[Rfam]
RNA sequence: ACUCGGGCACGAUCUUACGGAUCAAUCGCCGUAAAGAACCGACCCGAAGUCUCAAUCCUGAAGGG
Numbered sequence: 001a002c003u004c005g006g007g008c009a010c011g012a013u014c015u016u017a018c019g020g021a022u023c024a025a026u027c028g029c030c031g032u033a034a035a036g037a038a039c040c041g042a043c044c045c046g047a048a049g050u051c052u053c054a055a056u057c058c059u060g061a062a063g064g065g
Stems, first nucleotide, its partner, number of pairs: 001050003004046004013037003016033005
This 65-nucleotide sequence from Corynebacterium tapiri belongs to the Rfam family "L31-Corynebacteriaceae ribosomal protein leader".
The family's RNA type in Rfam is cis-regulatory leader.
Clan: Ribosomal Protein L31 Leader clan.
Lineage of the source: Bacteria > Bacillati > Mycobacteriales > Corynebacteriaceae > Corynebacterium.